[Rfam]
RNA sequence: CCCAUCCUUGUCCUGGGAUUGCGUCACCAUCCAAUGAGCGCACAGUGAUGGUGGAACUGUAAACGUCUACACAACACGCCUGUAUCAACUGCAGCUUUCUUUGCUUUACCUUCGUGCAAUUUUUGAAAAA
Dot-bracket structure: ......(((.....)))...(((...(((((......((.....))...)))))...))).....................((((.(..((.(((.......))).))...).)))).............
This 130-nucleotide RNA from Callithrix jacchus belongs to the Rfam family "U4atac minor spliceosomal RNA". For this family Rfam cites "Evolutionary conservation of minor U12-type spliceosome between plants and humans" (Lorkovic et al., RNA, 2005). It is annotated as a spliceosomal small nuclear RNA. Its family is annotated with U4atac snRNP, mRNA 5'-splice site recognition and pre-mRNA 5'-splice site binding in the Gene Ontology. Rfam 15.1 lists 1,648 matches to the family in 818 species. Rfam's curators write: U4atac is an essential component of the minor U12-type spliceosome complex which is required for removal of the rarer class of eukaryotic introns (AT-AC, U12-type).